Rfam assigns this 53-nucleotide RNA to the family "leuA-Halobacteria RNA". Pairs were carried over by alignment from the consensus structure, which is taken from published work.
[Rfam]
RNA sequence: CCCUUCGGAGGAUAGAGGAAGUCGCCUCGCGGCGGCUGGCUGUGAAAUUCUCC
Numbered sequence: 001c002c003c004u005u006c007g008g009a010g011g012a013u014a015g016a017g018g019a020a021g022u023c024g025c026c027u028c029g030c031g032g033c034g035g036c037u038g039g040c041u042g043u044g045a046a047a048u049u050c051u052c053c
Stems, first nucleotide, its partner, number of pairs: 020037007
Dot-bracket structure: ...................(((((((....)))))))................
By type it is a cis-regulatory element.